RNA: Archaeal large subunit ribosomal RNA, nucleotides 1813 to 2184
RNA sequence: CGGGUGACCCCGGGCCAGGGAACUCGGCAAAUUAGCCCUGUAACUUCGGGAGAAGGGGUGCCCGCGGCUCUGGUGUUUUCCCACUGGAACCGCGGGUCGCAGUGACAAGGGGGACCUGACUGUUUAACAAAAACAUAGGUCCCCGCUAGCCCGUAAGGGUGUGUACGGGGGCUGAAUCCUGGCCACUGGCGGUACGUGAAACCUGGGUACAACCGGGCGAAGCGCCGCUGAAGGCCGGGGGUAACUCUGACCCUCUUAAGGUAGCCAAAUGCCUUGCCGGGUAAGUUCCGGCGUGCAUGAAUGGAUCAACGAGGUCCCCACUGUCCCGGCCCGGGGCCCGGCGAACCCACCUCCGGGUGCAGAGUCCUGGGA
Numbered sequence: 001c002g003g004g005u006g007a008c009c010c011c012g013g014g015c016c017a018g019g020g021a022a023c024u025c026g027g028c029a030a031a032u033u034a035g036c037c038c039u040g041u042a043a044c045u046u047c048g049g050g051a052g053a054a055g056g057g058g059u060g061c062c063c064g065c066g067g068c069u070c071u072g073g074u075g076u077u078u079u080c081c082c083a084c085u086g087g088a089a090c091c092g093c094g095g096g097u098c099g100c101a102g103u104g105a106c107a108a109g110g111g112g113g114a115c116c117u118g119a120c121u122g123u124u125u126a127a128c129a130a131a132a133a134c135a136u137a138g139g140u141c142c143c144c145g146c147u148a149g150c151c152c153g154u155a156a157g158g159g160u161g162u163g164u165a166c167g168g169g170g171g172c173u174g175a176a177u178c179c180u181g182g183c184c185a186c187u188g189g190c191g192g193u194a195c196g197u198g199a200a201a202c203c204u205g206g207g208u209a210c211a212a213c214c215g216g217g218c219g220a221a222g223c224g225c226c227g228c229u230g231a232a233g234g235c236c237g238g239g240g241g242u243a244a245c246u247c248u249g250a251c252c253c254u255c256u257u258a259a260g261g262u263a264g265c266c267a268a269a270u271g272c273c274u275u276g277c278c279g280g281g282u283a284a285g286u287u288c289c290g291g292c293g294u295g296c297a298u299g300a301a302u303g304g305a306u307c308a309a310c311g312a313g314g315u316c317c318c319c320a321c322u323g324u325c326c327c328g329g330c331c332c333g334g335g336g337c338c339c340g341g342c343g344a345a346c347c348c349a350c351c352u353c354c355g356g357g358u359g360c361a362g363a364g365u366c367c368u369g370g371g372a
Stems, first nucleotide, its partner, number of pairs: 001340004009335008018326003035059005044049001060097008098102001110319007117311002121135003138173008146163001149160004176306004181236003186233002188229005195224003202217005237255006256260001276292006353370005